[Rfam]
RNA sequence: CUCGUUUUCAAGAUGAAAUAUUACGGAUGUAAAGUAGUCCAAGGACUCAAAAUCCGAGAGCGCAAAACCCCAUGUGGAUUUUUCCGUUGCCUUCCUUCUGACCUCUUGU
Numbered sequence: 001c002u003c004g005u006u007u008u009c010a011a012g013a014u015g016a017a018a019u020a021u022u023a024c025g026g027a028u029g030u031a032a033a034g035u036a037g038u039c040c041a042a043g044g045a046c047u048c049a050a051a052a053u054c055c056g057a058g059a060g061c062g063c064a065a066a067a068c069c070c071c072a073u074g075u076g077g078a079u080u081u082u083u084c085c086g087u088u089g090c091c092u093u094c095c096u097u098c099u100g101a102c103c104u105c106u107u108g109u
Base pairs, nucleotide, nucleotide: 003108004107024086025085026084027083
Dot-bracket structure: ..((...................((((.......................................................))))....................)).

About this RNA:
The record is a 109-nucleotide RNA sequence from Panaeolus cyanescens, which matches "Small nucleolar RNA Z13/snr52" in Rfam. By type it is a C/D-box small nucleolar RNA. A search with the family's covariance model found it, with a score of 80 bits. Its family is annotated with nucleolus and RNA processing in the Gene Ontology. NCBI's taxonomy places the organism under Eukaryota, Opisthokonta, Basidiomycota, Agaricomycetidae, Panaeolus. Rfam 15.1 lists 1,203 matches to the family in 866 species.